The family of this 87-nucleotide RNA sequence from Neisseria animaloris is "Neisseria metabolic switch regulator b (RcoF1/NgncR163)".
Rfam classes the family as a small RNA.
RNA sequence: CCAUCGAGUUGCUUAAUGCAGCUUGAUUUUUCUCCUCUAUUUCUCCUUUGUAGACUUGGCGCAUAUCCCAAAGAUAUGCGCAUUUUU
Numbered sequence: 001c002c003a004u005c006g007a008g009u010u011g012c013u014u015a016a017u018g019c020a021g022c023u024u025g026a027u028u029u030u031u032c033u034c035c036u037c038u039a040u041u042u043c044u045c046c047u048u049u050g051u052a053g054a055c056u057u058g059g060c061g062c063a064u065a066u067c068c069c070a071a072a073g074a075u076a077u078g079c080g081c082a083u084u085u086u087u
Base pairs, nucleotide, nucleotide: 003027004026005025006024007023008022009021010020011019036054037053038052039051040050059081060080061079062078063077064076065075066074068073

About this RNA: The literature on the family includes a 2017 paper in MBio by Pannekoek et al., "Neisseria meningitidis Uses Sibling Small Regulatory RNAs To Switch from Cataplerotic to Anaplerotic Metabolism". Its family is annotated with mRNA binding, tricarboxylic acid cycle and regulation of translation, ncRNA-mediated in the Gene Ontology. A search with the family's covariance model found it, with a score of 79 bits. The family has 6 seed sequences and 65 matches in Rfam 15.1. Pairs were carried over by alignment from the consensus structure, which was predicted with RNAfold. Rfam describes the family as follows. Sibling sRNA described and independently named in three publications. NgncR163 is N. gonorrhoeae while the others are N. meningitidis RNAs. RcoF1 stands for: RNA regulating colonization factor 1. NmsRb_RcoF1_NgncR163 was shown to be the predominant sibling. They are tandemly arranged, structurally nearly identical and and share 70% sequence identity. They translationally down-regulate genes involved in basic metabolic processes including tricarboxylic acid cycle enzymes and amino acid uptake and degradation. The targets include: fumC, sdhC, gltA, sucC, prpB and prpC Their expression is under the control of RelA. Furthermore, they interact with Hfq and target mRNA that encodes putative colonization factor of the human nasopharynx (PrpB).